[Rfam]
RNA sequence: GCACAUUACCUGUUUGUGCAUGGAUCUAAUGCUCUUUGAUAUGAGUAGUCGUUCCUAGUUUUCACCAUAUGGUGGACAUCCGAUCGACUUGAAAUAGUAUUAGAUUCACGCACAAACAUGUAAUUUGUCU
Numbered sequence: 001g002c003a004c005a006u007u008a009c010c011u012g013u014u015u016g017u018g019c020a021u022g023g024a025u026c027u028a029a030u031g032c033u034c035u036u037u038g039a040u041a042u043g044a045g046u047a048g049u050c051g052u053u054c055c056u057a058g059u060u061u062u063c064a065c066c067a068u069a070u071g072g073u074g075g076a077c078a079u080c081c082g083a084u085c086g087a088c089u090u091g092a093a094a095u096a097g098u099a100u101u102a103g104a105u106u107c108a109c110g111c112a113c114a115a116a117c118a119u120g121u122a123a124u125u126u127g128u129c130u
Base pairs, nucleotide, nucleotide: 001128002127003126005124006123007122011118012117013116014115015114016113017112018111019110021108022107023106024105025104026103028101029100030099032097033096
RNA: MIR403 microRNA precursor family